[Rfam]
RNA sequence: GUGCGGGACCGGGCCCCUCUGACGGUGCGCACAGCGCGUGCCGCCAUGUCGGACCGCAACG
Number, nucleotide and partner (000 for none) at each position: 001g000002u000003g000004c000005g000006g055007g054008a000009c052010c051011g050012g049013g000014c000015c000016c000017c000018u000019c000020u000021g000022a000023c043024g042025g041026u040027g000028c038029g037030c036031a000032c000033a000034g000035c000036g030037c029038g028039u000040g026041c025042c024043g023044c000045c000046a000047u000048g000049u012050c011051g010052g009053a000054c007055c006056g000057c000058a000059a000060c000061g000
RNA: terC RNA
Organism: Rubellimicrobium thermophilum